[Rfam]
RNA sequence: GCAUUCAGGUGACCGCUGCACGCAUUGCGUGUAGAGGAAAGUCCAUGCUCGCACGGGCUGAGAUGCCCGUAGUGUUCGUGCCUAGCCAAUUCAUAAGCUAGGGUAGUCUGGUUUCGACUGGACUAACGGCAAGGGAAGCACCUACGUCUUUUAUAGAUAUGGUGUUCUACCUUUGAAAGUGCCACAGUGACGUAGUCCAUUUGGAAACGAAUGGAGUGGAACGCGGUAAACCCCUCGAGCGAGAAACCCAAAUUAGGUAGGGGCAUCUUCUCUAAUGGAAAUGAACAAAUGAGAAGGACAAGAGUGAUCUUGUAGAUAGAUGGUUGCCACCGGAGUACGAGGUUCAUCACCGUUUGCAGUACUAAGGUACAAAACAUGGCUUAUCGAA
Numbered sequence: 001g002c003a004u005u006c007a008g009g010u011g012a013c014c015g016c017u018g019c020a021c022g023c024a025u026u027g028c029g030u031g032u033a034g035a036g037g038a039a040a041g042u043c044c045a046u047g048c049u050c051g052c053a054c055g056g057g058c059u060g061a062g063a064u065g066c067c068c069g070u071a072g073u074g075u076u077c078g079u080g081c082c083u084a085g086c087c088a089a090u091u092c093a094u095a096a097g098c099u100a101g102g103g104u105a106g107u108c109u110g111g112u113u114u115c116g117a118c119u120g121g122a123c124u125a126a127c128g129g130c131a132a133g134g135g136a137a138g139c140a141c142c143u144a145c146g147u148c149u150u151u152u153a154u155a156g157a158u159a160u161g162g163u164g165u166u167c168u169a170c171c172u173u174u175g176a177a178a179g180u181g182c183c184a185c186a187g188u189g190a191c192g193u194a195g196u197c198c199a200u201u202u203g204g205a206a207a208c209g210a211a212u213g214g215a216g217u218g219g220a221a222c223g224c225g226g227u228a229a230a231c232c233c234c235u236c237g238a239g240c241g242a243g244a245a246a247c248c249c250a251a252a253u254u255a256g257g258u259a260g261g262g263g264c265a266u267c268u269u270c271u272c273u274a275a276u277g278g279a280a281a282u283g284a285a286c287a288a289a290u291g292a293g294a295a296g297g298a299c300a301a302g303a304g305u306g307a308u309c310u311u312g313u314a315g316a317u318a319g320a321u322g323g324u325u326g327c328c329a330c331c332g333g334a335g336u337a338c339g340a341g342g343u344u345c346a347u348c349a350c351c352g353u354u355u356g357c358a359g360u361a362c363u364a365a366g367g368u369a370c371a372a373a374a375c376a377u378g379g380c381u382u383a384u385c386g387a388a
Base pairs, nucleotide, nucleotide: 004388005387006386007384008328009327010326011325012324013323014322016034017033018032019031020030021029039382040381041380043379044378045377046376047375048243049242050241051240052239053070054069055068056067057066058065076238077237078236080234081102082101083100084099085098086097103127104125105124106123107122108121109120110119111118112117128233129232131173132172133171134170139164140163141162142161146158147157148156179231180230181227182226183225196215197214198213199212200211201210202209203208247262248261249260266297267296268295269294270293271292272291298313299312300311301310302309303308330367331366334363335362336361337360338359
A member of the RNA family "Bacterial RNase P class B" from Halalkalibacter suaedae, 388 nucleotides long. Lineage of the source: Bacteria > Bacillota > Caryophanales > Bacillaceae > Halalkalibacter. It is annotated as a ribozyme. Its family is annotated with tRNA processing, dimeric ribonuclease P complex and ribonuclease P activity in the Gene Ontology. Ribonuclease P (RNase P) is a ubiquitous endoribonuclease, found in archaea, bacteria and eukarya as well as chloroplasts and mitochondria. Its best characterised activity is the generation of mature 5'-ends of tRNAs by cleaving the 5'-leader elements of precursor-tRNAs. Cellular RNase Ps are ribonucleoproteins. RNA from bacterial RNase Ps retains its catalytic activity in the absence of the protein subunit, i.e. it is a ribozyme. Its Rfam clan is "RNaseP clan".